[Rfam]
The family of this 87-nucleotide RNA from Saimiri boliviensis is "mir-515 microRNA precursor family". Its family is annotated with RISC complex and miRNA-mediated post-transcriptional gene silencing in the Gene Ontology. For this family Rfam cites "Identification of hundreds of conserved and nonconserved human microRNAs" (Bentwich et al., Nat Genet, 2005). A search with the family's covariance model found it, with a score of 84 bits.

RNA sequence: UCCCAAACUGUGAUCCUCCAAAGGGAAGUGCUUUCUGUUUUCUGAAAAGAAAGAGACCCCUUCCCUUUAGAGUGUUACCGUUUGGGA
Numbered sequence: 001u002c003c004c005a006a007a008c009u010g011u012g013a014u015c016c017u018c019c020a021a022a023g024g025g026a027a028g029u030g031c032u033u034u035c036u037g038u039u040u041u042c043u044g045a046a047a048a049g050a051a052a053g054a055g056a057c058c059c060c061u062u063c064c065c066u067u068u069a070g071a072g073u074g075u076u077a078c079c080g081u082u083u084g085g086g087a
Stems, first nucleotide, its partner, number of pairs: 001087005007081002010078005016072003020068009030058001032056004038052002